[Rfam]
Nucleotides: 270
Stems, first nucleotide, its partner, number of pairs: 001270004035252002038249002042230008061216004065128007086114005093107003136195004147181013
Number, partner (000 for none) and nucleotide at each position: 001270g002269g003268u004267c005000g006000g007000u008000g009000a010000u011000g012000u013000g014000a015000u016000g017000u018000a019000a020000a021000a022000g023000g024000u025000c026000u027000g028000a029000u030000g031000c032000u033000c034000a035252g036251g037000c038249u039248c040000c041000g042230c043229c044228c045227u046226c047225a048224g049223c050000c051000a052000c053000c054000a055000u056000u057000u058000u059000g060000g061216c062215u063214c064213c065128c066127a067126g068125c069124a070123g071122u072000c073000c074000g075000u076000g077000c078000u079000c080000u081000c082000u083000g084000c085000c086114a087113c088112c089111a090110u091000c092000u093107u094106g095105c096000u097000c098000u099000a100000g101000u102000g103000g104000u105095g106094c107093a108000u109000u110090a111089u112088g113087g114086u115000c116000c117000c118000a119000g120000c121000a122071g123070c124069u125068g126067c127066u128065g129000a130000c131000a132000g133000g134000c135000u136195g137194g138193a139192u140000u141000g142000g143000a144000c145000a146000u147181c148180a149179c150178a151177g152176a153175g154174u155173c156172u157171g158170g159169a160000c161000u162000g163000a164000g165000a166000u167000c168000a169159u170158c171157c172156a173155g174154a175153c176152u177151c178150u179149g180148u181147g182000a183000u184000g185000u186000g187000a188000u189000g190000a191000c192139a193138u194137c195136c196000g197000a198000c199000a200000g201000a202000a203000u204000c205000a206000a207000u208000c209000g210000g211000u212000a213064g214063g215062a216061g217000c218000g219000u220000c221000a222000g223049g224048c225047u226046g227045a228044g229043g230042g231000a232000g233000c234000g235000g236000g237000g238000c239000a240000c241000g242000a243000g244000u245000g246000g247000u248039g249038a250000u251036c252035u253000c254000a255000c256000u257000c258000u259000u260000u261000u262000a263000c264000u265000g266000a267004g268003a269002c270001c
Shown here is a 270-nucleotide RNA from Parambassis ranga, a member of the family "Small Cajal body specific RNA 6". A reference for the family is Darzacq et al. (2002), "Cajal body-specific small nuclear RNAs: a novel class of 2'-O-methylation and pseudouridylation guide RNAs", EMBO J. It scores 95 bits against the family's covariance model. Rfam's curators write: U88 is small Cajal body specific RNA (scaRNA). scaRNAs are a novel class of small nuclear RNAs which localise to the Cajal bodies. Taxonomically the source falls in Parambassis (Eukaryota, Bilateria, Chordata, Neopterygii). Rfam classes the family as a small Cajal body RNA.